[Rfam]
RNA sequence: UUAUGUCUUCAGGGCAGGGUGAAAUUCCCGAUUGGCGGUACAGUCCGCGAGCGCGCAAGCGUUGACCCGGUGAAACUCCGGGACCAACAGUAUAGUCUGGAUGAAAGAAGAUGUGU
Numbered sequence: 001u002u003a004u005g006u007c008u009u010c011a012g013g014g015c016a017g018g019g020u021g022a023a024a025u026u027c028c029c030g031a032u033u034g035g036c037g038g039u040a041c042a043g044u045c046c047g048c049g050a051g052c053g054c055g056c057a058a059g060c061g062u063u064g065a066c067c068c069g070g071u072g073a074a075a076c077u078c079c080g081g082g083a084c085c086a087a088c089a090g091u092a093u094a095g096u097c098u099g100g101a102u103g104a105a106a107g108a109a110g111a112u113g114u115g116u
Base pairs, nucleotide, nucleotide: 003114004113005112006111007110008109009108010107017029018028019027031096032095033086034085035048036047037046038045043084044083051062052061053060066082067081068080069079070078088099089098090097
The family of this 116-nucleotide RNA from Enterocloster lavalensis is "FMN riboswitch aptamer (RFN element)". The match comes from Rfam's covariance-model search (116 bits). Pairs were carried over by alignment from the consensus structure, which is taken from published work. NCBI's taxonomy places the organism under Bacteria, Bacillati, Bacillota, Clostridia, Enterocloster.